Annotation:
The record is an 80-nucleotide sequence from Caenorhabditis remanei, which matches "lin-4 microRNA precursor family" in Rfam. On this family, see Rougvie, Nat Rev Genet 2001: "Control of developmental timing in animals". Rfam's curators put it in the seed alignment. The source organism's lineage runs through Eukaryota, Opisthokonta, Ecdysozoa, Rhabditina and Caenorhabditis.
RNA sequence: UUUCGGCCUGCUCCCUGAGACCUCAAGUGUGAGCGCACUGUUGAUGCUUCACGCCUGGGCUCUCUGGGUACCAGGACGGC
Numbered sequence: 001u002u003u004c005g006g007c008c009u010g011c012u013c014c015c016u017g018a019g020a021c022c023u024c025a026a027g028u029g030u031g032a033g034c035g036c037a038c039u040g041u042u043g044a045u046g047c048u049u050c051a052c053g054c055c056u057g058g059g060c061u062c063u064c065u066g067g068g069u070a071c072c073a074g075g076a077c078g079g080c
Stems, first nucleotide, its partner, number of pairs: 013068003017064004022059004027054006033047003